[Rfam]
RNA sequence: CCCCCAGAAGAUCAAAUCACGGCCCCGUUGGGUAGUCGGGGCGCGGUCACCUGGCCGUCCGUAGCCUGCCGCAUGCGCGGUUGUCCCUUCUUCGCAUGACCUUG
Numbered sequence: 001c002c003c004c005c006a007g008a009a010g011a012u013c014a015a016a017u018c019a020c021g022g023c024c025c026c027g028u029u030g031g032g033u034a035g036u037c038g039g040g041g042c043g044c045g046g047u048c049a050c051c052u053g054g055c056c057g058u059c060c061g062u063a064g065c066c067u068g069c070c071g072c073a074u075g076c077g078c079g080g081u082u083g084u085c086c087c088u089u090c091u092u093c094g095c096a097u098g099a100c101c102u103u104g
Base pairs, nucleotide, nucleotide: 007093008092009091010090011089022042023041024040025039026038027037043058044057045056046055047054048053068081069080070079071078

A member of the RNA family "azaaromatic riboswitch aptamer (yjdF RNA)" from Collinsella sp. An2, 104 nucleotides long. The organism belongs to Collinsella, within Bacteria. Pairs were carried over by alignment from the consensus structure, which is taken from published work. The match comes from Rfam's covariance-model search (55 bits).